[Rfam]
Nucleotides: 089
Stems, first nucleotide, its partner, number of pairs: 012037002017032006040083004045079003048074003055068003
Number, partner (000 for none) and nucleotide at each position: 001000a002000a003000u004000u005000g006000a007000a008000a009000a010000a011000g012037g013036c014000a015000a016000a017032c018031c019030c020029a021028u022027u023000g024000a025000a026000a027022a028021g029020u030019g031018g032017g033000g034000a035000c036013g037012c038000a039000a040083a041082g042081c043080c044000a045079u046078g047077a048074g049073u050072c051000u052000a053000a054000a055068g056067c057066a058000a059000u060000u061000u062000u063000a064000a065000c066057u067056g068055c069000u070000a071000u072050g073049a074048c075000a076000g077047u078046c079045a080043g081042g082041u083040u084000g085000c086000c087000a088000a089000u